RNA sequence: GAGUCUACCAUCUAUGCGAGUGUUUGGGUGCCAAACCCGUGCGCGCAAUGAAAGUGAACGGAGGCGAGAACCCGCAAGGGUGCACCGUCGACCGAUCCCGAUGUUCUCGGAAGGAUUUGAGUAAGAGCAUAGCUGGUGGGACCCGAAAGAUGUUGAACUAUGCGUGAAUAGGGCGAAGCCAGAAGAAAUUCUGGUGGAGGCUCGCAGGGGUUCUGACGUGCAAAUCGAUCCUCAAAUUUGCGUAUGGGGGCGAAAGACCAAUCGAAGCAUCUAGUAGCUGGUU
Number, nucleotide and partner (000 for none) at each position: 001g000002a000003g000004u000005c139006u138007a137008c136009c135010a134011u000012c132013u131014a130015u129016g128017c127018g000019a000020g044021u043022g042023u000024u000025u039026g038027g037028g036029u035030g000031c000032c000033a000034a000035a029036c028037c027038c026039g025040u000041g000042c022043g021044c020045g000046c000047a000048a055049u054050g000051a000052a000053a000054g049055u048056g000057a000058a000059c000060g000061g000062a000063g089064g088065c087066g086067a000068g000069a000070a081071c080072c079073c000074g000075c000076a000077a000078g000079g072080g071081u070082g000083c000084a000085c000086c066087g065088u064089c063090g000091a122092c121093c119094g118095a117096u115097c114098c113099c000100g000101a000102u109103g108104u000105u000106c000107u000108c103109g102110g000111a000112a000113g098114g097115a096116u000117u095118u094119g093120a000121g092122u091123a000124a000125g000126a000127g017128c016129a015130u014131a013132g012133c000134u010135g009136g008137u007138g006139g005140g000141a000142c281143c280144c000145g278146a000147a000148a000149g271150a270151u269152g268153u267154u266155g000156a000157a000158c247159u246160a245161u244162g243163c242164g241165u240166g239167a238168a237169u235170a000171g203172g202173g201174c200175g000176a000177a000178g195179c194180c193181a192182g191183a190184a189185g000186a000187a000188a000189u184190u183191c182192u181193g180194g179195u178196g000197g000198a000199g000200g174201c173202u172203c171204g000205c000206a000207g232208g231209g230210g229211u000212u228213c227214u000215g226216a225217c000218g000219u000220g000221c000222a000223a000224a000225u216226c215227g213228a212229u210230c209231c208232u207233c000234a000235a169236a000237u168238u167239u166240g165241c164242g163243u162244a161245u160246g159247g158248g000249g259250g258251c000252g000253a000254a000255a000256g000257a000258c250259c249260a000261a000262u000263c000264g000265a000266a154267g153268c152269a151270u150271c149272u000273a000274g000275u000276a000277g000278c145279u000280g143281g142282u000283u000
RNA: Eukaryotic large subunit ribosomal RNA, nucleotides 651 to 933